[Rfam]
RNA sequence: AAGCUGCCGUUGAACGUAUUCCAAAUCAGUUUAUAAAACCCGCGAUUGGCGCUGGAAAGCUGGGGAUUAUCAUCAAUACUCAACGUAUCAGGCCUGCGGCAUCUCCCCCAAGUGCCGUGCCUGUCUGGACGGGCAGCGUGUCCCGUCUGUGUAUCACUCCUAAUGGUCUUGACCCGAAUCCAUCCCCCAGGAUUCGG
Numbered sequence: 001a002a003g004c005u006g007c008c009g010u011u012g013a014a015c016g017u018a019u020u021c022c023a024a025a026u027c028a029g030u031u032u033a034u035a036a037a038a039c040c041c042g043c044g045a046u047u048g049g050c051g052c053u054g055g056a057a058a059g060c061u062g063g064g065g066a067u068u069a070u071c072a073u074c075a076a077u078a079c080u081c082a083a084c085g086u087a088u089c090a091g092g093c094c095u096g097c098g099g100c101a102u103c104u105c106c107c108c109c110a111a112g113u114g115c116c117g118u119g120c121c122u123g124u125c126u127g128g129a130c131g132g133g134c135a136g137c138g139u140g141u142c143c144c145g146u147c148u149g150u151g152u153a154u155c156a157c158u159c160c161u162a163a164u165g166g167u168c169u170u171g172a173c174c175c176g177a178a179u180c181c182a183u184c185c186c187c188c189a190g191g192a193u194u195c196g197g
Base pairs, nucleotide, nucleotide: 043165044164089123090122091121095119096118098116100114101113102112126149127148128147129146130145131144132143133141174197175196176195177194179192180191181190

The record is a 197-nucleotide RNA sequence from Halopseudomonas phragmitis, which matches "RgsA sRNA" in Rfam. The family's consensus secondary structure was predicted with RNAalifold. The literature on the family includes a 2006 paper in Nucleic Acids Res by Livny et al., "Identification of 17 Pseudomonas aeruginosa sRNAs and prediction of sRNA-encoding genes in 10 diverse pathogens using the bioinformatic tool sRNAPredict2". It is annotated as a small RNA. A search with the family's covariance model found it, with a score of 119 bits. This small RNA (sRNA) was computationally identified in the genome of the opportunistic pathogen Pseudomonas aeruginosa and its expression verified by northern blot analysis. P16 sRNA appears to be conserved across several Pseudomonas species and Azotobacter vinelandii.